The record is a 283-nucleotide part of an RNA from Blastomyces gilchristii, which matches "Eukaryotic large subunit ribosomal RNA" in Rfam.
It is one of the family's seed sequences.
Pairs were carried over by alignment from the consensus structure, which is taken from published work.
Gene Ontology terms of the family: ribosome and structural constituent of ribosome.
NCBI's taxonomy places the organism under Eukaryota, Dikarya, Ascomycota, Pezizomycotina, Blastomyces gilchristii.
RNA sequence: AAGUCUAAUAUUUAUACAAGUGUUCAGAUGUCAAACCUGUUCAUACAGUGAAAGUGAACAGAGAUGAGUACUCUUAAGAGUAUAUCAUUGACUGAUUCUGAAGUCUUUAGAUAGAUUUGAGUAAGAGUAUGACUGUUGAAAUCUGAAAGAUGAUAAACUAUGUCUGAAUAGAGUGAAGUCAGAGAAAACUCUGAUGAAGACUCACAGUGAUUCUGACAUGCAAAUCAAUCAUUGAAUUUAAGUAUAGAGAUGAAAGACUAAUUGAAUCAUCUAGUAGCUGAUU
Numbered sequence: 001a002a003g004u005c006u007a008a009u010a011u012u013u014a015u016a017c018a019a020g021u022g023u024u025c026a027g028a029u030g031u032c033a034a035a036c037c038u039g040u041u042c043a044u045a046c047a048g049u050g051a052a053a054g055u056g057a058a059c060a061g062a063g064a065u066g067a068g069u070a071c072u073c074u075u076a077a078g079a080g081u082a083u084a085u086c087a088u089u090g091a092c093u094g095a096u097u098c099u100g101a102a103g104u105c106u107u108u109a110g111a112u113a114g115a116u117u118u119g120a121g122u123a124a125g126a127g128u129a130u131g132a133c134u135g136u137u138g139a140a141a142u143c144u145g146a147a148a149g150a151u152g153a154u155a156a157a158c159u160a161u162g163u164c165u166g167a168a169u170a171g172a173g174u175g176a177a178g179u180c181a182g183a184g185a186a187a188a189c190u191c192u193g194a195u196g197a198a199g200a201c202u203c204a205c206a207g208u209g210a211u212u213c214u215g216a217c218a219u220g221c222a223a224a225u226c227a228a229u230c231a232u233u234g235a236a237u238u239u240a241a242g243u244a245u246a247g248a249g250a251u252g253a254a255a256g257a258c259u260a261a262u263u264g265a266a267u268c269a270u271c272u273a274g275u276a277g278c279u280g281a282u283u
Base pairs, nucleotide, nucleotide: 006138007137008136009135010134012132013131014130015129016128017127020044021043022042025039026038027037029035048055049054063089064088065087066086067085070081071080072079091122092121093119094118095117096115097114103108142281143280145278149271150270151269152268153267154266158247159246160245161244162243163242165240166239167238168237169235171203172202173201174200178195179194180193181192182191183190184189207232208231209230210229212228215226216225249259251257